[Rfam]
RNA: Plastid-psbA-4 3UTR RNA
RNA sequence: AACCCAAAGUAGCAAUACCCCAUGUCUUGCUUUAUCAAGACAUGGUGUAUUGCUACUUUGU
Numbered sequence: 001a002a003c004c005c006a007a008a009g010u011a012g013c014a015a016u017a018c019c020c021c022a023u024g025u026c027u028u029g030c031u032u033u034a035u036c037a038a039g040a041c042a043u044g045g046u047g048u049a050u051u052g053c054u055a056c057u058u059u060g061u
Base pairs, nucleotide, nucleotide: 006059007058008057009056010055011054012053013052014051015050016049017048021044022043024041025040026039027038028037029036